[Rfam]
RNA sequence: GGUCUAAGCCGUUCUACCGCCGCGGUUUUGGCCGGGGAGGAAAGUCCGGACAGCAUAGAGUGCCGUACUUCUUAACGGGAAGGCAGCUGGUUGGAAACGUCCAGUUGACAGCAAGUGCCACAGAAAAUAUACCGCCUGGCAUAUUUUUUAUAUCAGGUAAGGGUGAAAAGGUGGGGUAAGAGCCUACCGCUCGAUUGGCAACAAACGAGGCAGGGUAAACCUUACGGGCUGAAAGAUCAAAUAGGUGCUGGUUAGUGAGGUUACUCGCCUCCGUCUCCCUUGGGAGGCAUCAGCAUGGGUAGAUCGUUAGAGGCUGUGGGUGACUGCAGUCCUGGAUAAAUGGUAGAAGUUUCGUAAAAUUCGUUUUACGAAAUACAGAAUCCGGCUUACAGGCUUAUACUUUUU
Numbered sequence: 001g002g003u004c005u006a007a008g009c010c011g012u013u014c015u016a017c018c019g020c021c022g023c024g025g026u027u028u029u030g031g032c033c034g035g036g037g038a039g040g041a042a043a044g045u046c047c048g049g050a051c052a053g054c055a056u057a058g059a060g061u062g063c064c065g066u067a068c069u070u071c072u073u074a075a076c077g078g079g080a081a082g083g084c085a086g087c088u089g090g091u092u093g094g095a096a097a098c099g100u101c102c103a104g105u106u107g108a109c110a111g112c113a114a115g116u117g118c119c120a121c122a123g124a125a126a127a128u129a130u131a132c133c134g135c136c137u138g139g140c141a142u143a144u145u146u147u148u149u150a151u152a153u154c155a156g157g158u159a160a161g162g163g164u165g166a167a168a169a170g171g172u173g174g175g176g177u178a179a180g181a182g183c184c185u186a187c188c189g190c191u192c193g194a195u196u197g198g199c200a201a202c203a204a205a206c207g208a209g210g211c212a213g214g215g216u217a218a219a220c221c222u223u224a225c226g227g228g229c230u231g232a233a234a235g236a237u238c239a240a241a242u243a244g245g246u247g248c249u250g251g252u253u254a255g256u257g258a259g260g261u262u263a264c265u266c267g268c269c270u271c272c273g274u275c276u277c278c279c280u281u282g283g284g285a286g287g288c289a290u291c292a293g294c295a296u297g298g299g300u301a302g303a304u305c306g307u308u309a310g311a312g313g314c315u316g317u318g319g320g321u322g323a324c325u326g327c328a329g330u331c332c333u334g335g336a337u338a339a340a341u342g343g344u345a346g347a348a349g350u351u352u353c354g355u356a357a358a359a360u361u362c363g364u365u366u367u368a369c370g371a372a373a374u375a376c377a378g379a380a381u382c383c384g385g386c387u388u389a390c391a392g393g394c395u396u397a398u399a400c401u402u403u404u405u
Base pairs, nucleotide, nucleotide: 001401002400003399005397006396007395008394009393010392011390012348013347014346015345016344017343018342020037021036023034024033025032026031042388043387044386046385047384048383049382050381051231052230053229054228058281059280060279063227064226065225066224067223068082069081070080071079072078083109084107085106086105087104088103089102090101110222111221115220116219117216118215119214132162133161134158135157136156137155138154139153141151142150170188171187172186173185174184175183189211190209191208192207193206195204196203197202235305236304237303238302245296246295247294248293249292250291274285275284276283312331313330314329315328316327317326318325319324
Rfam assigns this 405-nucleotide RNA from Dyadobacter jejuensis to the family "Bacterial RNase P class A".
Its family is annotated with ribonuclease P activity, dimeric ribonuclease P complex and tRNA processing in the Gene Ontology.
Clan: RNaseP clan.
It scores 267 bits against the family's covariance model.